This 76-nucleotide RNA sequence from Miscanthus lutarioriparius belongs to the Rfam family "Small nucleolar RNA snoR53Y". Gene Ontology terms of the family: nucleolus and RNA processing. The family's RNA type in Rfam is C/D-box small nucleolar RNA. The base pairs follow the family's consensus structure, which was predicted with WAR.
RNA sequence: GUUCCCAGUGAUGGCAUAUAUUAACCAUGCUAAUGCUGAUAUCCUUUGACGAUUAUAACAAUGUGCUGAGGGAGCU
Numbered sequence: 001g002u003u004c005c006c007a008g009u010g011a012u013g014g015c016a017u018a019u020a021u022u023a024a025c026c027a028u029g030c031u032a033a034u035g036c037u038g039a040u041a042u043c044c045u046u047u048g049a050c051g052a053u054u055a056u057a058a059c060a061a062u063g064u065g066c067u068g069a070g071g072g073a074g075c076u
Stems, first nucleotide, its partner, number of pairs: 001075005